[Rfam]
The family of this 134-nucleotide sequence from Rousettus aegyptiacus is "Small nucleolar RNA SNORA13". About the family: ACA13 is a member of the H/ACA class of snoRNA that guide the sites of modification of uridines to pseudouridines. The family has 50 seed sequences and 1,034 matches in Rfam 15.1. A search with the family's covariance model found it, with a score of 136 bits. By type it is an H/ACA-box small nucleolar RNA. Pairs were carried over by alignment from the consensus structure, which was predicted with CMfinder. Its family is annotated with RNA processing and nucleolus in the Gene Ontology.
RNA sequence: AGCCUUUGCAUUGCCCAUUUACUUUUGGAAACUAGUAAAUGUGGUGUCGAAAAAGGCAUAAACUAAACACUUUGCAGCCUUUUCCUGCUCUUGAAUUUGAUAUCUUUGCUGUAGGAUCUGCAUAAGUAACAGUU
Dot-bracket structure: .((((((.(..((((((((((((..........)))))))).))))..)..))))))...........(((((((((.....((((((.(..((........))...)..)))))).))))).)))).......